The record is a 128-nucleotide sequence from Otolemur garnettii, which matches "Small nucleolar RNA ACA64" in Rfam. The family has 30 seed sequences and 9,537 matches in Rfam 15.1. For this family Rfam cites "A computational screen for mammalian pseudouridylation guide H/ACA RNAs" (Schattner et al., RNA, 2006).

RNA sequence: AUUGGUUAAAAAUCACUCCCAGCUUUGGCUGUAGCUGGAAGUGAGAUGCAGCACCUAGAGCCAGCAGGGGCCUCAGCUCACUGCCCACUGCUUUGUGUGUGUGGGGUGAAACCCAAGCCCUGACAGGU
Dot-bracket structure: ....(((..(..((((....((((........))))....))))..)..)))..............(.(((.(....(((((...(((........))).....))))).....).))).).......
Numbered sequence: 001a002u003u004g005g006u007u008a009a010a011a012a013u014c015a016c017u018c019c020c021a022g023c024u025u026u027g028g029c030u031g032u033a034g035c036u037g038g039a040a041g042u043g044a045g046a047u048g049c050a051g052c053a054c055c056u057a058g059a060g061c062c063a064g065c066a067g068g069g070g071c072c073u074c075a076g077c078u079c080a081c082u083g084c085c086c087a088c089u090g091c092u093u094u095g096u097g098u099g100u101g102u103g104g105g106g107u108g109a110a111a112c113c114c115a116a117g118c119c120c121u122g123a124c125a126g127g128u
Stems, first nucleotide, its partner, number of pairs: 005052003010047001013044004021036004067121001069119003073115001078109005086099003
Description:
The family's consensus secondary structure was predicted with WAR.